Small nucleolar RNA snoR97: a 115-nucleotide RNA from Pyrus ussuriensis x Pyrus communis.
Rfam links the family to the GO terms nucleolus and RNA processing.
It is annotated as an H/ACA-box small nucleolar RNA.
The family has 7 seed sequences and 862 matches in Rfam 15.1.
A reference for the family is Marker et al. (2002), "Experimental RNomics: identification of 140 candidates for small non-messenger RNAs in the plant Arabidopsis thaliana", Curr Biol.
The match comes from Rfam's covariance-model search (75 bits).
[Rfam]
RNA sequence: UUUUUCGAUCGGGUAUAGGGUCUGAAAUAACUCAUAAAUUGGAGUGUUGUCUAUCAGCUUCAUCUUGUGUUAUUGGUCGAGAGUGAGACUGGAGUUAAACAACAGCACUACAUCU
Number, nucleotide and partner (000 for none) at each position: 001u000002u000003u000004u000005u000006c000007g000008a000009u000010c000011g000012g000013g000014u000015a000016u000017a000018g000019g000020g000021u000022c000023u000024g000025a000026a000027a000028u000029a000030a000031c000032u000033c000034a000035u000036a000037a000038a000039u000040u000041g000042g000043a109044g108045u107046g106047u105048u104049g103050u000051c000052u000053a000054u000055c000056a096057g095058c094059u093060u092061c091062a000063u088064c087065u086066u085067g084068u083069g000070u000071u000072a000073u000074u000075g000076g000077u000078c000079g000080a000081g000082a000083g068084u067085g066086a065087g064088a063089c000090u000091g061092g060093a059094g058095u057096u056097a000098a000099a000100c000101a000102a000103c049104a048105g047106c046107a045108c044109u043110a000111c000112a000113u000114c000115u000